[Rfam]
RNA sequence: CUCUGGAGAGUCCGUAAUCGGCGCCAAAGGAGAAAUACAUUGAAUAUGUAGAAGCUCUCAGGCUAAAUACAGAG
Number, nucleotide and partner (000 for none) at each position: 001c074002u073003c072004u071005g070006g000007a000008g000009a000010g000011u000012c021013c020014g019015u000016a000017a000018u000019c014020g013021g012022c000023g063024c062025c061026a000027a058028a000029g000030g057031a056032g055033a000034a000035a000036u050037a049038c048039a047040u000041u000042g000043a000044a000045u000046a000047u039048g038049u037050a036051g000052a000053a000054g000055c032056u031057c030058u027059c000060a000061g025062g024063c023064u000065a000066a000067a000068u000069a000070c005071a004072g003073a002074g001
This 74-nucleotide RNA from Alkaliphilus peptidifermentans belongs to the Rfam family "Glycine riboswitch aptamer". A search with the family's covariance model found it, with a score of 39 bits. The organism belongs to Alkaliphilus peptidifermentans, within Bacteria. Rfam links the family to the GO term glycine biosynthetic process.